[Rfam]
RNA: Small nucleolar RNA SNORA31
Organism: Bos indicus
RNA sequence: CGCAUCUAUUUGACAGACCUGAAGCAGUUACUGUCUGCUAAGGUUUACACUACAGAUGCAAGAAAAACAUCCUCGCGCUUUCUGCCUGUCUAAUUGUGGCAGCCCAGAUUGAAUGGGGGAACACAGGG
Numbered sequence: 001c002g003c004a005u006c007u008a009u010u011u012g013a014c015a016g017a018c019c020u021g022a023a024g025c026a027g028u029u030a031c032u033g034u035c036u037g038c039u040a041a042g043g044u045u046u047a048c049a050c051u052a053c054a055g056a057u058g059c060a061a062g063a064a065a066a067a068c069a070u071c072c073u074c075g076c077g078c079u080u081u082c083u084g085c086c087u088g089u090c091u092a093a094u095u096g097u098g099g100c101a102g103c104c105c106a107g108a109u110u111g112a113a114u115g116g117g118g119g120a121a122c123a124c125a126g127g128g
Base pairs, nucleotide, nucleotide: 002059003058004057005056006055007054011049012048015046016045017044018043019042023039024038025037026036027035070120071119072118073117074116078111081108082107083106084105086102087101088100089099090098